[Rfam]
RNA sequence: GCCACUGUCAUUGGGGAGUAGCCAUCCUUUGAAUCCCCAAAGGAGUCAGCGUCAACAGACUUGGCGGUUUCGUACCCCAUGGCGCUGACGGCACCCGCGUCGCCGCACCGGGAAGCCAGGCGAGACCUUUGGCCGCGAUGCGUACAUGCCUGCCGGGCGAGCCGCAUCGUCGCGCCAUUGGUGUCU
Numbered sequence: 001g002c003c004a005c006u007g008u009c010a011u012u013g014g015g016g017a018g019u020a021g022c023c024a025u026c027c028u029u030u031g032a033a034u035c036c037c038c039a040a041a042g043g044a045g046u047c048a049g050c051g052u053c054a055a056c057a058g059a060c061u062u063g064g065c066g067g068u069u070u071c072g073u074a075c076c077c078c079a080u081g082g083c084g085c086u087g088a089c090g091g092c093a094c095c096c097g098c099g100u101c102g103c104c105g106c107a108c109c110g111g112g113a114a115g116c117c118a119g120g121c122g123a124g125a126c127c128u129u130u131g132g133c134c135g136c137g138a139u140g141c142g143u144a145c146a147u148g149c150c151u152g153c154c155g156g157g158c159g160a161g162c163c164g165c166a167u168c169g170u171c172g173c174g175c176c177a178u179u180g181g182u183g184u185c186u
Stems, first nucleotide, its partner, number of pairs: 026043003045089010062079003066075001090185006

A member of the RNA family "Manganese Mn2+ riboswitch aptamer (yybP-ykoY)" from Bordetella genomosp. 7, 186 nucleotides long.
A reference for the family is Barrick et al. (2004), "New RNA motifs suggest an expanded scope for riboswitches in bacterial genetic control", Proc Natl Acad Sci U S A.
Taxonomically the source falls in Bordetella (Bacteria, Pseudomonadati, Pseudomonadota, Betaproteobacteria).
Rfam links the family to the GO term manganese ion binding.
About the family: This RNA was originally discovered in E. coli during a large scale screen and was named SraF. The family was later found to exist upstream of related families of protein genes in many bacteria, including the the yybP and ykoK genes in B. subtilis. The specific functions of these proteins are unknown, but this structured RNA element may be involved in their genetic regulation as a riboswitch.